[Rfam]
RNA sequence: CGGUAACUCCGAAUCCUGAAGAGGAUAGGAGUAACGGCUGCUUGGCACAGCCAUCGGUACGCCUGUUCGACAAAUCCACGGGCAGAGUACGCCCACAAGAACAGGUUGUCCCGUAAACCGUAAUAUCCCAACGUGGGAAUCCUCGCGCUUCAGCGCGGGGA
Number, nucleotide and partner (000 for none) at each position: 001c000002g000003g035004u034005a000006a000007c031008u030009c029010c028011g000012a000013a026014u025015c024016c023017u022018g000019a000020a000021g000022a017023g016024g015025a014026u013027a000028g010029g009030a008031g007032u000033a000034a004035c003036g052037g051038c050039u049040g048041c000042u000043u000044g000045g000046c000047a000048c040049a039050g038051c037052c036053a000054u000055c113056g112057g111058u000059a109060c108061g000062c105063c104064u103065g102066u101067u100068c099069g000070a000071c000072a000073a000074a000075u000076c000077c000078a000079c000080g000081g094082g093083c000084a000085g090086a000087g000088u000089a000090c085091g000092c000093c082094c081095a000096c000097a000098a000099g068100a067101a066102c065103a064104g063105g062106u000107u000108g060109u059110c000111c057112c056113g055114u000115a000116a000117a000118c000119c000120g000121u000122a000123a000124u000125a000126u138127c137128c136129c135130a000131a000132c000133g000134u000135g129136g128137g127138a126139a000140u161141c160142c159143u158144c157145g156146c155147g154148c153149u000150u000151c000152a000153g148154c147155g146156c145157g144158g143159g142160g141161a140
The record is a 161-nucleotide RNA sequence from Salinarchaeum sp. IM2453, which matches "Sense overlapping transcript RNA 0042 (sot)" in Rfam. It is associated with IS1341-type transposase (tnpB) genes, at the 3'-end in H. salinarum NRC-1. The tetraloop structural motif may be functional. Lineage of the source: Archaea > Methanobacteriota > Halobacteria > Halobacteriales > Salinarchaeum. It is annotated as a small RNA. The literature on the family includes a 2015 paper in RNA Biol by Gomes-Filho et al., "Sense overlapping transcripts in IS1341-type transposase genes are functional non-coding RNAs in archaea". It scores 122 bits against the family's covariance model.